[Rfam]
Record summary:
This 87-nucleotide RNA sequence from Paenibacillus nasutitermitis belongs to the Rfam family "c-di-GMP-I riboswitch aptamer". Gene Ontology term of the family: cyclic-di-GMP binding. The source organism's lineage runs through Bacteria, Bacillota, Bacilli, Caryophanales and Paenibacillus.
RNA sequence: AAUGGAAAACGGCAAAACUGUCGAAAGGCAGUGACGCAAUGCCUCGGAUCUUCUCACUGUUCAAGUGAUGACCGCCGGGUUAUCCGA
Numbered sequence: 001a002a003u004g005g006a007a008a009a010c011g012g013c014a015a016a017a018c019u020g021u022c023g024a025a026a027g028g029c030a031g032u033g034a035c036g037c038a039a040u041g042c043c044u045c046g047g048a049u050c051u052u053c054u055c056a057c058u059g060u061u062c063a064a065g066u067g068a069u070g071a072c073c074g075c076c077g078g079g080u081u082a083u084c085c086g087a
Stems, first nucleotide, its partner, number of pairs: 012037002017032006041080003045077003049071002055067004